This 69-nucleotide RNA from Pollutimonas bauzanensis belongs to the Rfam family "Fluoride riboswitch aptamer (crcB RNA motif)". Taxonomically the source falls in Pollutimonas (Bacteria, Pseudomonadota, Betaproteobacteria, Burkholderiales). Rfam 15.1 lists 2,293 matches to the family in 1,982 species.
RNA sequence: UUCAGAUACGGAGAUGGCAUACCUCCUAUCCCAACCGCUGGAUUCCCAGCUGAUGAUGCCUACGAAUUU
Numbered sequence: 001u002u003c004a005g006a007u008a009c010g011g012a013g014a015u016g017g018c019a020u021a022c023c024u025c026c027u028a029u030c031c032c033a034a035c036c037g038c039u040g041g042a043u044u045c046c047c048a049g050c051u052g053a054u055g056a057u058g059c060c061u062a063c064g065a066a067u068u069u
Stems, first nucleotide, its partner, number of pairs: 010026004016060005037050004